[Rfam]
RNA: Rhodo-rpoB RNA
RNA sequence: UGGUCGGGAGCUCCCUUUGGGACGGGAGCGGGAAUAGACCGAAUUUCUCUGUUUCGUCAGGGCACAUCUGCCGGCGCCCAACGGUAGACGUC
Numbered sequence: 001u002g003g004u005c006g007g008g009a010g011c012u013c014c015c016u017u018u019g020g021g022a023c024g025g026g027a028g029c030g031g032g033a034a035u036a037g038a039c040c041g042a043a044u045u046u047c048u049c050u051g052u053u054u055c056g057u058c059a060g061g062g063c064a065c066a067u068c069u070g071c072c073g074g075c076g077c078c079c080a081a082c083g084g085u086a087g088a089c090g091u092c
Base pairs, nucleotide, nucleotide: 001041002040003039004038005037010029011028012027013026014025015024064091065090067088069086070085071084072083073082